[Rfam]
RNA: TD-2 RNA
RNA sequence: ACGGGCACGGACGCCCGUGGUUCCAAGCAGAAUUGAGUUUGAAAACUACCACAGCGUACUCGGAGUUUUCAAACUCAUAGGUAUAAUUUUGCCACGGACGGCAAAAUUAUACCGUUG
Numbered sequence: 001a002c003g004g005g006c007a008c009g010g011a012c013g014c015c016c017g018u019g020g021u022u023c024c025a026a027g028c029a030g031a032a033u034u035g036a037g038u039u040u041g042a043a044a045a046c047u048a049c050c051a052c053a054g055c056g057u058a059c060u061c062g063g064a065g066u067u068u069u070c071a072a073a074c075u076c077a078u079a080g081g082u083a084u085a086a087u088u089u090u091g092c093c094a095c096g097g098a099c100g101g102c103a104a105a106a107u108u109a110u111a112c113c114g115u116u117g
Stems, first nucleotide, its partner, number of pairs: 001018006034077014080113014